[Rfam]
The family of this 113-nucleotide RNA from Callithrix jacchus is "Y RNA".
Rfam 15.1 lists 26,986 matches to the family in 650 species.
Rfam's curators write: Y RNAs are components of the Ro ribonucleoprotein particle (Ro RNP), in association with Ro60 and La proteins. The Y RNAs and Ro60 and La proteins are well conserved, but the function of the Ro RNP is not known. In humans the RNA component can be one of four small RNAs -- hY1, hY3, hY4 and hY5. These small RNAs are predicted to fold into a conserved secondary structure containing three stem structures. The largest of the four, hY1, contains an additional hairpin. This family includes a significant number of annotated pseudogenes and the model is expected to discriminate poorly between real and Y RNA related pseudogenes.
RNA sequence: GGCUGGCCCAAAGGUAGUGAGUUAUCUCAAUUGACUGUUUACACUCAGUUACAAAUCAAACUCCUUGUUCUAUUAUUUCCUCCCUUUUCGCUACUGCACUUGAUUAGUCUUAA
Dot-bracket structure: ((((((.(.((..((((((((.........................((.....................))...............))))))...))..))).))))))....
Numbered sequence: 001g002g003c004u005g006g007c008c009c010a011a012a013g014g015u016a017g018u019g020a021g022u023u024a025u026c027u028c029a030a031u032u033g034a035c036u037g038u039u040u041a042c043a044c045u046c047a048g049u050u051a052c053a054a055a056u057c058a059a060a061c062u063c064c065u066u067g068u069u070c071u072a073u074u075a076u077u078u079c080c081u082c083c084c085u086u087u088u089c090g091c092u093a094c095u096g097c098a099c100u101u102g103a104u105u106a107g108u109c110u111u112a113a
Stems, first nucleotide, its partner, number of pairs: 001109006008102001010101002014097002016092006047071002